[Rfam]
RNA sequence: UUAAUCGAGCUCAACACUCUUCGUAUAUCCUCUCAAUAUGGGAUGAGGGUCUCUACAGGUACCGUAAAUACCUAGCUACGAAAAGAAUGCAGUUAAUG
Dot-bracket structure: .................(.((((((...((((((.......)).))))........(((((.......)))))...)))))).)..............
The record is a 98-nucleotide sequence from Halalkalibacterium halodurans, which matches "Purine riboswitch aptamer" in Rfam. Gene Ontology term of the family: purine nucleobase biosynthetic process.